[Rfam]
RNA sequence: AAACCCUGUCCCGGGAGAGAGCAGUCCCUUGAGGCUGCCGCCGAAGGCGCAACCGCCCCGGAAACGCUCAGGCAAAAGGACCGGACAGGGUCA
Numbered sequence: 001a002a003a004c005c006c007u008g009u010c011c012c013g014g015g016a017g018a019g020a021g022c023a024g025u026c027c028c029u030u031g032a033g034g035c036u037g038c039c040g041c042c043g044a045a046g047g048c049g050c051a052a053c054c055g056c057c058c059c060g061g062a063a064a065c066g067c068u069c070a071g072g073c074a075a076a077a078g079g080a081c082c083g084g085a086c087a088g089g090g091u092c093a
Stems, first nucleotide, its partner, number of pairs: 006088005012083003021038004040073003043069002047067003053061002
Glycine riboswitch aptamer: a 93-nucleotide RNA sequence from Hyphomonas chukchiensis.
It scores 68 bits against the family's covariance model.
Rfam's curators write: This family represents the bacterial glycine riboswitch.
The pairing is the family consensus, mapped onto this sequence.
Lineage of the source: Bacteria > Pseudomonadota > Alphaproteobacteria > Hyphomonadaceae > Hyphomonas.